rpsB sRNA: a 98-nucleotide sequence from Xanthobacter versatilis. The family's RNA type in Rfam is small RNA. The family's consensus secondary structure is taken from published work. The source organism's lineage runs through Bacteria, Pseudomonadota, Alphaproteobacteria, Xanthobacteraceae and Xanthobacter.

[Rfam]
RNA sequence: CGCACGCGGACAUCAGGCCAUCUGGCCAUCCGGUGCCCUCUCCCUAUUAGGGGGUGGGGGUACGUCCGCGGAGGCUCAACCGGAGAAUACUCAAAUGG
Numbered sequence: 001c002g003c004a005c006g007c008g009g010a011c012a013u014c015a016g017g018c019c020a021u022c023u024g025g026c027c028a029u030c031c032g033g034u035g036c037c038c039u040c041u042c043c044c045u046a047u048u049a050g051g052g053g054g055u056g057g058g059g060g061u062a063c064g065u066c067c068g069c070g071g072a073g074g075c076u077c078a079a080c081c082g083g084a085g086a087a088u089a090c091u092c093a094a095a096u097g098g
Stems, first nucleotide, its partner, number of pairs: 001073001003071001005070007016027004035061006